[Rfam]
RNA sequence: AGAGUGUUAUGAUGUUGGAAGUUAACUCUUCCGAGUCUAGCUCAGCACUGCUCCUUAAAUUGAAAAAUUUGAGGAG
Numbered sequence: 001a002g003a004g005u006g007u008u009a010u011g012a013u014g015u016u017g018g019a020a021g022u023u024a025a026c027u028c029u030u031c032c033g034a035g036u037c038u039a040g041c042u043c044a045g046c047a048c049u050g051c052u053c054c055u056u057a058a059a060u061u062g063a064a065a066a067a068u069u070u071g072a073g074g075a076g
Stems, first nucleotide, its partner, number of pairs: 002043004011037003017032005051076009
The record is a 76-nucleotide RNA from Enterococcus ratti, which matches "L17 ribosomal protein downstream element" in Rfam. Lineage of the source: Bacteria > Bacillati > Bacilli > Lactobacillales > Enterococcus. The family's RNA type in Rfam is cis-regulatory element.